A member of the RNA family "Mammalian CPEB3 ribozyme" from Alligator mississippiensis, 77 nucleotides long.
Lineage of the source: Eukaryota > Craniata > Euteleostomi > Dipnotetrapodomorpha > Alligator.
A search with the family's covariance model found it, with a score of 54 bits.
RNA sequence: GAUGGAGAGUUUGAGGCCAUAGCAAAAGAGCUCAUGGCACAGCCCUGUCAGAUUCCAACAAAUCUGUGAAUUCUGCU
Numbered sequence: 001g002a003u004g005g006a007g008a009g010u011u012u013g014a015g016g017c018c019a020u021a022g023c024a025a026a027a028g029a030g031c032u033c034a035u036g037g038c039a040c041a042g043c044c045c046u047g048u049c050a051g052a053u054u055c056c057a058a059c060a061a062a063u064c065u066g067u068g069a070a071u072u073c074u075g076c077u
Stems, first nucleotide, its partner, number of pairs: 013045001015044003021077004026072002028040001030038001049066006

Description
About the family: The mammalian CPEB3 ribozyme is a self cleaving RNA located in the second intron of the CPEB3 gene which belongs to a family of genes regulating messenger RNA polyadenylation.